[Rfam]
The record is a 118-nucleotide RNA sequence from Candidatus Protofrankia californiensis, which matches "Group II catalytic intron D1-D4-2" in Rfam. Group II introns are found in rRNA, tRNA and mRNA of organelles in fungi, plants and protists, and also in mRNA in bacteria. Rfam links the family to the GO term Group II intron splicing. It scores 91 bits against the family's covariance model. Taxonomically the source falls in Protofrankia (Bacteria, Bacillati, Actinomycetota, Actinomycetes).

RNA sequence: GGAGGUUGGCCCUCCGGGAUCGCUCUGCAUGGGGGAGGUCUCAAACCGCCGUAGGCUGCGUCGGUGAAUGAGCCGGGGUGGUGAGCGCUGCGGAAAAGGCGCACGGGAUGCGUCAGGU
Number, nucleotide and partner (000 for none) at each position: 001g015002g014003a013004g012005g011006u000007u000008g000009g000010c000011c005012c004013u003014c002015c001016g042017g041018g040019a039020u038021c037022g000023c035024u034025c033026u032027g000028c000029a000030u000031g000032g026033g025034g024035g023036a000037g021038g020039u019040c018041u017042c016043a000044a000045a000046c000047c117048g000049c093050c092051g091052u090053a089054g088055g082056c081057u000058g079059c078060g000061u000062c075063g074064g073065u072066g000067a000068a000069u000070g000071a000072g065073c064074c063075g062076g000077g000078g059079u058080g000081g056082u055083g000084a000085g000086c000087g000088c054089u053090g052091c051092g050093g049094a000095a000096a000097a000098g114099g113100c112101g111102c110103a109104c000105g000106g000107g000108a000109u103110g102111c101112g100113u099114c098115a000116g000117g047118u000